[Rfam]
The family of this 85-nucleotide sequence from Blastococcus sp. DSM 46786 is "ZMP/ZTP riboswitch aptamer (pfl RNA motif)". Pairs were carried over by alignment from the consensus structure, which is taken from published work. Taxonomically the source falls in Blastococcus (Bacteria, Bacillati, Actinomycetota, Geodermatophilaceae).
RNA sequence: UCCGAGGGCCGUGACUGGCGCGUCGAGGUGGACCACCACCGGGGAGCGGCCCGCACCACCGUCGCCGUGCGCCUGGGCACCUCAC
Numbered sequence: 001u002c003c004g005a006g007g008g009c010c011g012u013g014a015c016u017g018g019c020g021c022g023u024c025g026a027g028g029u030g031g032a033c034c035a036c037c038a039c040c041g042g043g044g045a046g047c048g049g050c051c052c053g054c055a056c057c058a059c060c061g062u063c064g065c066c067g068u069g070c071g072c073c074u075g076g077g078c079a080c081c082u083c084a085c
Base pairs, nucleotide, nucleotide: 004054006052007051008050009049010048011047012046015043016042017073018072019071020070021069028039029038030037031036064078065077066076